[Rfam]
The family of this 66-nucleotide RNA sequence from Streptococcus phage Javan399 is "Bacilli-1 RNA".
RNA sequence: AUCUGUGGCAACACAGACACACGUCUGAAAGCACAACGUGUGGCUUGGCAAAGCUUAAAAAUUGUU
Number, nucleotide and partner (000 for none) at each position: 001a000002u017003c016004u015005g014006u013007g012008g000009c000010a000011a000012c007013a006014c005015a004016g003017a002018c042019a041020c040021a039022c038023g037024u036025c000026u000027g000028a000029a000030a000031g000032c000033a000034c000035a000036a024037c023038g022039u021040g020041u019042g018043g000044c000045u000046u000047g000048g000049c000050a000051a000052a000053g000054c000055u000056u000057a000058a000059a000060a000061a000062u000063u000064g000065u000066u000

The source organism's lineage runs through Viruses, Heunggongvirae, Uroviricota, Caudoviricetes and Aliceevansviridae.